[Rfam]
Nucleotides: 130
Base pairs, nucleotide, nucleotide: 021043022042023041024040025039026038027037028036029035048071049070050069051068052067053066054065076092077091078090079089080088081087094110095109096108097107098106099105
Number, partner (000 for none) and nucleotide at each position: 001000u002000u003000c004000g005000u006000u007000a008000g009000a010000a011000a012000u013000c014000a015000a016000c017000u018000c019000a020000g021043g022042u023041u024040g025039g026038c027037a028036c029035c030000g031000c032000a033000a034000c035029g036028g037027u038026g039025u040024c041023g042022a043021c044000a045000g046000g047000u048071a049070g050069u051068c052067c053066g054065c055000c056000a057000c058000g059000c060000c061000g062000g063000c064000a065054g066053c067052g068051g069050a070049c071048u072000g073000c074000g075000c076092g077091g078090c079089a080088g081087a082000g083000c084000a085000u086000u087081u088080c089079u090078g091077c092076c093000u094110g095109g096108u097107c098106c099105c100000a101000a102000c103000c104000u105099g106098g107097g108096g109095c110094c111000g112000c113000a114000a115000g116000g117000a118000c119000a120000u121000a122000a123000c124000a125000g126000u127000c128000a129000a130000c
The family of this 130-nucleotide RNA from Pseudomonas sp. 8AS is "rmf RNA". It scores 116 bits against the family's covariance model. The base pairs follow the family's consensus structure, which is taken from published work.